[Rfam]
RNA sequence: CGCCUAACCCUCACAGUUGAUCUGCGAGGUACGGCAUAAAAACCUACCACAGGAUAAAAAGCUCGUCGUCAGAGCACCUGUGGUAGGUCAUAUCCGAAAGGGUAUGGGUAGUCCGAAAGGAUUAUC
Numbered sequence: 001c002g003c004c005u006a007a008c009c010c011u012c013a014c015a016g017u018u019g020a021u022c023u024g025c026g027a028g029g030u031a032c033g034g035c036a037u038a039a040a041a042a043c044c045u046a047c048c049a050c051a052g053g054a055u056a057a058a059a060a061g062c063u064c065g066u067c068g069u070c071a072g073a074g075c076a077c078c079u080g081u082g083g084u085a086g087g088u089c090a091u092a093u094c095c096g097a098a099a100g101g102g103u104a105u106g107g108g109u110a111g112u113c114c115g116a117a118a119g120g121a122u123u124a125u126c
Base pairs, nucleotide, nucleotide: 002035003034004033009029010028011027012026014024015023043087044086045085046084047083048082049081050080051079052078053077061075062074063073089106090105091104092103093102094101095100107126108125109124110123111122112121113120114119

Shown here is a 126-nucleotide RNA sequence, a member of the family "LOOT RNA". By type it is a small RNA.